This 139-nucleotide RNA from Nematostella vectensis belongs to the Rfam family "U4 spliceosomal RNA".
The family's RNA type in Rfam is spliceosomal small nuclear RNA.
RNA sequence: AGCUUUGCGCAGUGGCAUUACCGUAGCUGAUGAGGUCCAUCCGAGGCGCGGUUAUUGCUGAUUGAAAACUUUUCCCAAUACCCCGCGAGACGACUUGAAAUAUAGUCGGCUUUGCAAUUUUUGCAGACCUCUUUAGAGG
Dot-bracket structure: ...................(((((.(((.....((.....))..))))))))................................(((((.(((((........))))).)).)))............((((....))))